[Rfam]
RNA sequence: CAAUGUGGAUGAGGAGGAUUUGAAAUUAAUCAGUUAUCCCUGUCUGAAUAAGUAGUGCUGAUAUUUCUAAAGUCUGACACACUA
Numbered sequence: 001c002a003a004u005g006u007g008g009a010u011g012a013g014g015a016g017g018a019u020u021u022g023a024a025a026u027u028a029a030u031c032a033g034u035u036a037u038c039c040c041u042g043u044c045u046g047a048a049u050a051a052g053u054a055g056u057g058c059u060g061a062u063a064u065u066u067c068u069a070a071a072g073u074c075u076g077a078c079a080c081a082c083u084a
Stems, first nucleotide, its partner, number of pairs: 002083001004081004